Source information:
Rfam assigns this 122-nucleotide RNA sequence from Endobacterium cereale to the family "Alphaproteobacterial ar14". By type it is a small RNA. About the family: Smr14C2 was renamed NfeR1 (Nodule Formation Efficiency RNA) highly expressed in salt stress and during the symbiotic interaction on legume roots. A search with the family's covariance model found it, with a score of 105 bits. Rfam links the family to the GO term biological process involved in symbiotic interaction.
RNA sequence: GCUCAUCGAGACCGACACUCCUCCUCCCAGUCGGUCACGGUCGGACGGGCAGCACUCCUCCUCCCAAGCUGCACGUCACUUAUCGAAACCCGCCGCACCUCCUCCCGCGGCGGGUUUUCGCG
Numbered sequence: 001g002c003u004c005a006u007c008g009a010g011a012c013c014g015a016c017a018c019u020c021c022u023c024c025u026c027c028c029a030g031u032c033g034g035u036c037a038c039g040g041u042c043g044g045a046c047g048g049g050c051a052g053c054a055c056u057c058c059u060c061c062u063c064c065c066a067a068g069c070u071g072c073a074c075g076u077c078a079c080u081u082a083u084c085g086a087a088a089c090c091c092g093c094c095g096c097a098c099c100u101c102c103u104c105c106c107g108c109g110g111c112g113g114g115u116u117u118u119c120g121c122g
Stems, first nucleotide, its partner, number of pairs: 007039002010036007044077004049072005086117011